[Rfam]
RNA sequence: AGAGUUCUUCGGGGCAGGGUGUAAUUCCCUACCGGCGGUAAAAGUCCGCGACCCACGUAAGCGGCUGACUUGGUGCAAUUCCAAGACCGACAGUAUAGUCUGGAUGGUAGAAGACGCAA
Numbered sequence: 001a002g003a004g005u006u007c008u009u010c011g012g013g014g015c016a017g018g019g020u021g022u023a024a025u026u027c028c029c030u031a032c033c034g035g036c037g038g039u040a041a042a043a044g045u046c047c048g049c050g051a052c053c054c055a056c057g058u059a060a061g062c063g064g065c066u067g068a069c070u071u072g073g074u075g076c077a078a079u080u081c082c083a084a085g086a087c088c089g090a091c092a093g094u095a096u097a098g099u100c101u102g103g104a105u106g107g108u109a110g111a112a113g114a115c116g117c118a119a
Stems, first nucleotide, its partner, number of pairs: 006114005017029003031099002033089002035049004044087002053064002069085005091102003
RNA: FMN riboswitch aptamer (RFN element)
Organism: Eubacterium sp. AF22-8LB